RNA sequence: CCUCCCUAAACAUGUCGCAGCAUGACCUAACCGGAGAUAGUCGGUGAGGUAGAGCACUGAUUGGGGGAGCUGGGCGGGAAACUGCUCACCCCCCUGUCAAACUCCAAACUCCCCGACAUCCUAGAUGGUUGGAAGUCCGCAUUACGGGGUAAGCUUGUAAUGCGUAAGGGAAACAACCCAGACCGUGGUUAAUGUCCCUCAAUGUAGGCUCAGUGUCAACACUGAAAUUGGUCCUAGGUCAAAGACAACUGGAAGGUGAGCUCAGAAGCAGCUAUCCUUUAAAAAGUGCGUAACAGCUUACCAGUCAAGAUUUAGGGCGGUGAAAAUGGACGGGGCUAAAGCCUACUACAGAGACCACGGAGCACCGAAAGGUGAUCUGGUAGGGAGGCGCUCUGCGUGGGUAGAAGCUGGGGCGUGAGUUCCAGUGGACCGCGUAGUGAUGAGAAU
Numbered sequence: 001c002c003u004c005c006c007u008a009a010a011c012a013u014g015u016c017g018c019a020g021c022a023u024g025a026c027c028u029a030a031c032c033g034g035a036g037a038u039a040g041u042c043g044g045u046g047a048g049g050u051a052g053a054g055c056a057c058u059g060a061u062u063g064g065g066g067g068a069g070c071u072g073g074g075c076g077g078g079a080a081a082c083u084g085c086u087c088a089c090c091c092c093c094c095u096g097u098c099a100a101a102c103u104c105c106a107a108a109c110u111c112c113c114c115g116a117c118a119u120c121c122u123a124g125a126u127g128g129u130u131g132g133a134a135g136u137c138c139g140c141a142u143u144a145c146g147g148g149g150u151a152a153g154c155u156u157g158u159a160a161u162g163c164g165u166a167a168g169g170g171a172a173a174c175a176a177c178c179c180a181g182a183c184c185g186u187g188g189u190u191a192a193u194g195u196c197c198c199u200c201a202a203u204g205u206a207g208g209c210u211c212a213g214u215g216u217c218a219a220c221a222c223u224g225a226a227a228u229u230g231g232u233c234c235u236a237g238g239u240c241a242a243a244g245a246c247a248a249c250u251g252g253a254a255g256g257u258g259a260g261c262u263c264a265g266a267a268g269c270a271g272c273u274a275u276c277c278u279u280u281a282a283a284a285a286g287u288g289c290g291u292a293a294c295a296g297c298u299u300a301c302c303a304g305u306c307a308a309g310a311u312u313u314a315g316g317g318c319g320g321u322g323a324a325a326a327u328g329g330a331c332g333g334g335g336c337u338a339a340a341g342c343c344u345a346c347u348a349c350a351g352a353g354a355c356c357a358c359g360g361a362g363c364a365c366c367g368a369a370a371g372g373u374g375a376u377c378u379g380g381u382a383g384g385g386a387g388g389c390g391c392u393c394u395g396c397g398u399g400g401g402u403a404g405a406a407g408c409u410g411g412g413g414c415g416u417g418a419g420u421u422c423c424a425g426u427g428g429a430c431c432g433c434g435u436a437g438u439g440a441u442g443a444g445a446a447u
Stems, first nucleotide, its partner, number of pairs: 001388006011024005026135001027132006036120003040117005046111002052105001053103002059098003063094005072087006139163009168179003183360007193350003202347001204346006227321003231318010248305005254278003259273003279283001284299001288297002361378002363374004389442001391439001393437008407426008
Rfam assigns this 447-nucleotide part of an RNA from Methanoregula boonei to the family "Archaeal large subunit ribosomal RNA". Clan: LSU clan.